The record is an 83-nucleotide sequence from Mizuhopecten yessoensis, which matches "mir-46/mir-47/mir-281 microRNA precursor family" in Rfam.
RNA sequence: ACCUCACUUUGAUGAGGGGAGCAUUCGAUGACGGUCGGAAUGUAAAGCACUGUCAUGGAGUUGCUCUUUUCUUCAAGUAGGUC
Numbered sequence: 001a002c003c004u005c006a007c008u009u010u011g012a013u014g015a016g017g018g019g020a021g022c023a024u025u026c027g028a029u030g031a032c033g034g035u036c037g038g039a040a041u042g043u044a045a046a047g048c049a050c051u052g053u054c055a056u057g058g059a060g061u062u063g064c065u066c067u068u069u070u071c072u073u074c075a076a077g078u079a080g081g082u083c
Base pairs, nucleotide, nucleotide: 014071015070016069017068018067020065021064022063024059025058026057027056030054031053032052034050035049
Dot-bracket structure: .............(((((.(((.((((..(((.((.............)).))).))))...))).)))))............

Description:
The family has 57 seed sequences and 307 matches in Rfam 15.1. The match comes from Rfam's covariance-model search (45 bits). The literature on the family includes a 2001 paper in Science by Lau et al., "An abundant class of tiny RNAs with probable regulatory roles in Caenorhabditis elegans".